[Rfam]
Nucleotides: 149
Stems, first nucleotide, its partner, number of pairs: 001080001003077003008072003012068002018062002025060001027059006036050003088142007096133002101131005112119001
Number, partner (000 for none) and nucleotide at each position: 001080u002000c003077u004076g005075c006000u007000g008072c009071u010070u011000c012068u013067c014000u015000u016000a017000a018062c019061a020000g021000u022000a023000u024000u025060c026000g027059u028058g029057u030056c031055u032054g033000u034000g035000a036050a037049c038048u039000a040000a041000u042000u043000u044000g045000u046000a047000u048038g049037g050036u051000u052000c053000c054032c055031g056030g057029g058028c059027a060025g061019u062018g063000a064000c065000g066000a067013g068012a069000c070010g071009g072008g073000a074000a075005g076004c077003a078000g079000a080001a081000a082000a083000c084000a085000a086000u087000u088142g089141u090140u091139c092138c093137u094136c095000u096133c097132g098000c099000u100000a101131u102130c103129c104128a105127g106000u107000g108000c109000g110000g111000a112119a113000a114000u115000u116000u117000u118000g119112u120000g121000a122000u123000g124000c125000g126000a127105u128104u129103g130102g131101a132097c133096g134000u135000c136094g137093a138092g139091g140090a141089a142088c143000u144000a145000c146000a147000c148000u149000g